[Rfam]
RNA sequence: UCAAACGAUAGAGGACGCAGAAAAGACCAAGCGAGGAAAAGCCGGCAGGCGUUUGAUUCUUCGCCGCAGCGAUUCUGCCGAACUGUUCUUAAAGGCAUUUAAGGGCGGUGGGACCGUAUGAGAACAUCGACGGGACUGUCUACACAUGUAGGAGCGCUAUCUUAUGG
Numbered sequence: 001u002c003a004a005a006c007g008a009u010a011g012a013g014g015a016c017g018c019a020g021a022a023a024a025g026a027c028c029a030a031g032c033g034a035g036g037a038a039a040a041g042c043c044g045g046c047a048g049g050c051g052u053u054u055g056a057u058u059c060u061u062c063g064c065c066g067c068a069g070c071g072a073u074u075c076u077g078c079c080g081a082a083c084u085g086u087u088c089u090u091a092a093a094g095g096c097a098u099u100u101a102a103g104g105g106c107g108g109u110g111g112g113a114c115c116g117u118a119u120g121a122g123a124a125c126a127u128c129g130a131c132g133g134g135a136c137u138g139u140c141u142a143c144a145c146a147u148g149u150a151g152g153a154g155c156g157c158u159a160u161c162u163u164a165u166g167g
Stems, first nucleotide, its partner, number of pairs: 007161005017078006025070001031064008082109012110137002114133004120127001139152005